[Rfam]
RNA sequence: UCCAAAAGCUGCUGAGUUUGGCUUAACAGUCGGACCCAAUACUAUUAGGUCAUGCUUGACAGCCAGACCAAACACUAUUGUCCAGCCAUAUCCAAUAGCAUUGAGU
Numbered sequence: 001u002c003c004a005a006a007a008g009c010u011g012c013u014g015a016g017u018u019u020g021g022c023u024u025a026a027c028a029g030u031c032g033g034a035c036c037c038a039a040u041a042c043u044a045u046u047a048g049g050u051c052a053u054g055c056u057u058g059a060c061a062g063c064c065a066g067a068c069c070a071a072a073c074a075c076u077a078u079u080g081u082c083c084a085g086c087c088a089u090a091u092c093c094a095a096u097a098g099c100a101u102u103g104a105g106u
Stems, first nucleotide, its partner, number of pairs: 001104002004101001008099002011096001013094002016091002019088005025079002028076003033051004038046003056071003
RNA: MIR474 microRNA precursor family
Organism: Populus tomentosa